[Rfam]
Shown here is a 72-nucleotide RNA from Cupriavidus sp. USMAA2-4, a member of the family "Xanthine riboswitch aptamer (NMT1 RNA)". The base pairs follow the family's consensus structure, which is taken from published work. The organism belongs to Cupriavidus, within Bacteria. A search with the family's covariance model found it, with a score of 45 bits. The literature on the family includes a 2020 paper in RNA by Yu and Breaker, "A bacterial riboswitch class senses xanthine and uric acid to regulate genes associated with purine oxidation".
RNA sequence: GGCAAGAGUAGAAGCGUUCACCAGCCGUGUGCAUGCCGGGCAUGCGACGGCAGGCCGGGAAUUGCUCUUGCG
Numbered sequence: 001g002g003c004a005a006g007a008g009u010a011g012a013a014g015c016g017u018u019c020a021c022c023a024g025c026c027g028u029g030u031g032c033a034u035g036c037c038g039g040g041c042a043u044g045c046g047a048c049g050g051c052a053g054g055c056c057g058g059g060a061a062u063u064g065c066u067c068u069u070g071c072g
Stems, first nucleotide, its partner, number of pairs: 005068006015057001018059002021054002024051004